[Rfam]
Small nucleolar RNA U2-30: a 68-nucleotide RNA from Odocoileus virginianus. The literature on the family includes a 2004 paper in Curr Biol by Tycowski et al., "Guide RNAs with 5' Caps and Novel Box C/D snoRNA-like Domains for Modification of snRNAs in Metazoa".

RNA sequence: GAGCAAUGAUGAAAAGGUUUUACUACAGACCUUUAUAACUAUAGAUUUCUACACUCAAUCUGAGCUCU
Dot-bracket structure: ((((........(((((((........))))))).............................)))).

Description:
Rfam 15.1 lists 664 matches to the family in 136 species. Pairs were carried over by alignment from the consensus structure, which is taken from published work. Gene Ontology terms of the family: RNA processing and nucleolus. Lineage of the source: Eukaryota > Eumetazoa > Deuterostomia > Eutheria > Odocoileus virginianus.